[Rfam]
TPP riboswitch aptamer (THI element): a 101-nucleotide RNA from Paracoccus sp. SM22M-07. The source organism's lineage runs through Bacteria, Pseudomonadota, Alphaproteobacteria, Rhodobacterales and Paracoccus. For this family Rfam cites "Comparative genomics of thiamin biosynthesis in procaryotes. New genes and regulatory mechanisms" (Rodionov et al., J Biol Chem, 2002). The family has 115 seed sequences and 16,130 matches in Rfam 15.1.

RNA sequence: AGGCCUACCUCGGGGUGCCCUGCAUGGGCUGAGACGCAGUUGCGGACCCGUUGAACCUGAUCCGGUUGAUACCCGGCGGAGGGAAGGUGACGGCUGUCCUU
Numbered sequence: 001a002g003g004c005c006u007a008c009c010u011c012g013g014g015g016u017g018c019c020c021u022g023c024a025u026g027g028g029c030u031g032a033g034a035c036g037c038a039g040u041u042g043c044g045g046a047c048c049c050g051u052u053g054a055a056c057c058u059g060a061u062c063c064g065g066u067u068g069a070u071a072c073c074c075g076g077c078g079g080a081g082g083g084a085a086g087g088u089g090a091c092g093g094c095u096g097u098c099c100u101u
Stems, first nucleotide, its partner, number of pairs: 006089005011050004016044001017029004036043002056082003062076004